RNA sequence: AACCCCGGUCCGACCUGCGCUCCCUAUGAAGUACCCACUGGGGAGAAAGCACCUUGCCAAGCCCCACCCGUCCCUCCCGCCGGGCAAACUCACUCCCGCGAGUGAAUAUGCCCAACUGGGCUGGAUUCGGGACCGGUUGCCUGGCUUACGCUCACCGCAGCAAGGCACGACCCCAGACAUGGGACGGCCCUCGCCGGGACUGGCAUCCCAGUGCGAGGGCCUGACCACCAGGAAGUUCGGAGGACUUCCCG
Numbered sequence: 001a002a003c004c005c006c007g008g009u010c011c012g013a014c015c016u017g018c019g020c021u022c023c024c025u026a027u028g029a030a031g032u033a034c035c036c037a038c039u040g041g042g043g044a045g046a047a048a049g050c051a052c053c054u055u056g057c058c059a060a061g062c063c064c065c066a067c068c069c070g071u072c073c074c075u076c077c078c079g080c081c082g083g084g085c086a087a088a089c090u091c092a093c094u095c096c097c098g099c100g101a102g103u104g105a106a107u108a109u110g111c112c113c114a115a116c117u118g119g120g121c122u123g124g125a126u127u128c129g130g131g132a133c134c135g136g137u138u139g140c141c142u143g144g145c146u147u148a149c150g151c152u153c154a155c156c157g158c159a160g161c162a163a164g165g166c167a168c169g170a171c172c173c174c175a176g177a178c179a180u181g182g183g184a185c186g187g188c189c190c191u192c193g194c195c196g197g198g199a200c201u202g203g204c205a206u207c208c209c210a211g212u213g214c215g216a217g218g219g220c221c222u223g224a225c226c227a228c229c230a231g232g233a234a235g236u237u238c239g240g241a242g243g244a245c246u247u248c249c250c251g
Stems, first nucleotide, its partner, number of pairs: 007229003017076001019074001090105006120156001122154003186221005192215003196209004231249005